[Rfam]
RNA sequence: CCCUCCCGCGCGGGAGAGACCCGGAUCUCCGGGCGCCGACGGAGCAACCGCCCCGGAAACUCGUCAGGCAGAAGGACCGCGCGGGGCGG
Numbered sequence: 001c002c003c004u005c006c007c008g009c010g011c012g013g014g015a016g017a018g019a020c021c022c023g024g025a026u027c028u029c030c031g032g033g034c035g036c037c038g039a040c041g042g043a044g045c046a047a048c049c050g051c052c053c054c055g056g057a058a059a060c061u062c063g064u065c066a067g068g069c070a071g072a073a074g075g076a077c078c079g080c081g082c083g084g085g086g087c088g089g
Stems, first nucleotide, its partner, number of pairs: 006084008020033004035069003038065002042062003048056002